[Rfam]
RNA: FMN riboswitch aptamer (RFN element)
Organism: Paucibacter sp. KBW04
RNA sequence: CAGCGUUCUCAGGGCGGGGCGAAAUUCCCCACCGGCGGUAUUUGUGUUUUUAUCUGUUCAAAGCACAAGAGCCCGCGAGCGCCCUUGGCCGAUGCAAGUCUGCCGGGGGGUCAGCAGAUCUGGUGCGAAACCAGAGCCGACGGUCACAGUCCGGAUGAAAGAGAAACGCAG
Numbered sequence: 001c002a003g004c005g006u007u008c009u010c011a012g013g014g015c016g017g018g019g020c021g022a023a024a025u026u027c028c029c030c031a032c033c034g035g036c037g038g039u040a041u042u043u044g045u046g047u048u049u050u051u052a053u054c055u056g057u058u059c060a061a062a063g064c065a066c067a068a069g070a071g072c073c074c075g076c077g078a079g080c081g082c083c084c085u086u087g088g089c090c091g092a093u094g095c096a097a098g099u100c101u102g103c104c105g106g107g108g109g110g111u112c113a114g115c116a117g118a119u120c121u122g123g124u125g126c127g128a129a130a131c132c133a134g135a136g137c138c139g140a141c142g143g144u145c146a147c148a149g150u151c152c153g154g155a156u157g158a159a160a161g162a163g164a165a166a167c168g169c170a171g
Base pairs, nucleotide, nucleotide: 003169004168005167006166007164008163009162010161017029018028019027031150032149033139034138035076036075037074038073071137072136079115080114119135120134121133122132123131141153142152143151